[Rfam]
RNA sequence: AUCAGAGGAACAAAUGCAAAUUGCCACAUCCUGUGGCAAUGCAUUUGUGACGAACAUCGUGUUCG
Numbered sequence: 001a002u003c004a005g006a007g008g009a010a011c012a013a014a015u016g017c018a019a020a021u022u023g024c025c026a027c028a029u030c031c032u033g034u035g036g037c038a039a040u041g042c043a044u045u046u047g048u049g050a051c052g053a054a055c056a057u058c059g060u061g062u063u064c065g
Stems, first nucleotide, its partner, number of pairs: 011047007023037005051065005
Shown here is a 65-nucleotide sequence from Lysinibacillus sp. 2017, a member of the family "Bacillaceae-1 RNA". By type it is a small RNA. The source organism's lineage runs through Bacteria, Bacillota, Bacilli, Caryophanales and Lysinibacillus.